[Rfam]
The record is an 88-nucleotide RNA from Natranaerovirga hydrolytica, which matches "c-di-GMP-I riboswitch aptamer" in Rfam.
The family is grouped with related families in Rfam's "c-di-GMP_I riboswitch clan".
The source organism's lineage runs through Bacteria, Bacillati, Bacillota, Clostridia and Natranaerovirga.
The base pairs follow the family's consensus structure, which is taken from published work.
RNA sequence: UAAAGCCAAGGGCAAACCUAUCAAAAGAUGGGGACGCAAAGCUGAGGGUCUAAGGUACUUAAUGUACUAUGAUAGUCUGGCUACUAAA
Dot-bracket structure: ...........((...((((((....))))))...))..((((.((((((....((((.....))))...)))..)))))))......